[Rfam]
Nucleotides: 117
Base pairs, nucleotide, nucleotide: 003115005113006112007111008110009109010108017029018028019027031097032096033086034085035048036047037046038045043084044083053060066082067081068080069079070078088100089099090098
Number, partner (000 for none) and nucleotide at each position: 001000a002000a003115u004000a005113a006112u007111c008110u009109u010108c011000a012000g013000g014000g015000c016000a017029g018028g019027g020000g021000u022000c023000g024000u025000u026000u027019c028018c029017c030000u031097a032096c033086c034085g035048g036047c037046g038045g039000u040000a041000a042000a043084g044083c045038c046037c047036g048035c049000g050000a051000g052000c053060c054000g055000a056000u057000a058000a059000g060053g061000c062000a063000g064000g065000a066082u067081u068080c069079g070078g071000u072000g073000a074000a075000a076000u077000u078070c079069c080068g081067a082066g083044g084043c085034c086033g087000a088100c089099a090098g091000u092000u093000a094000a095000a096032g097031u098090c099089u100088g101000g102000a103000u104000g105000g106000a107000a108010g109009a110008a111007g112006a113005u114000g115003a116000c117000a